[Rfam]
This 71-nucleotide RNA from Strongylocentrotus purpuratus belongs to the Rfam family "tRNA". NCBI's taxonomy places the organism under Eukaryota, Opisthokonta, Metazoa, Bilateria, Strongylocentrotus. Rfam's curators put it in the seed alignment. The base pairs follow the family's consensus structure, which is taken from published work. By type it is a transfer RNA.

Nucleotides: 071
Stems, first nucleotide, its partner, number of pairs: 001070006009024003026042005048063005
Number, partner (000 for none) and nucleotide at each position: 001070c002069u003068a004067a005066a006065g007000u008000a009024g010023c011022a012000a013000a014000g015000u016000g017000g018000u019000u020000a021000a022011u023010g024009c025000a026042g027041a028040a029039g030038g031000c032000c033000u034000a035000a036000a037000a038030c039029u040028u041027u042026c043000c044000u045000a046000u047000c048063a049062a050061g051060g052059g053000u054000u055000c056000a057000a058000c059052u060051c061050c062049u063048u064000u065006c066005u067004u068003u069002a070001g071000c